Shown here is a 159-nucleotide sequence from Knoellia koreensis, a member of the family "c-di-AMP riboswitch aptamer (ydaO/yuaA leader)". Pairs were carried over by alignment from the consensus structure.

RNA sequence: GUGAGUGUCACGCCGGAGAUCCGCUCCGGGCACGACGAGGACGGGGGACCCACCUCUGGCCGUUCACGCGGCCUCGGGGUGAAGCCGGCUCCGGCCGGCCGGGCACCUGACAGCCCGAACCCGACAGCUCACCCCGAAGGCGCCCGUCAGGAAGGAAAU
Numbered sequence: 001g002u003g004a005g006u007g008u009c010a011c012g013c014c015g016g017a018g019a020u021c022c023g024c025u026c027c028g029g030g031c032a033c034g035a036c037g038a039g040g041a042c043g044g045g046g047g048a049c050c051c052a053c054c055u056c057u058g059g060c061c062g063u064u065c066a067c068g069c070g071g072c073c074u075c076g077g078g079g080u081g082a083a084g085c086c087g088g089c090u091c092c093g094g095c096c097g098g099c100c101g102g103g104c105a106c107c108u109g110a111c112a113g114c115c116c117g118a119a120c121c122c123g124a125c126a127g128c129u130c131a132c133c134c135c136g137a138a139g140g141c142g143c144c145c146g147u148c149a150g151g152a153a154g155g156a157a158a159u
Stems, first nucleotide, its partner, number of pairs: 011142004020038001042136005051076001077122003085098004101116004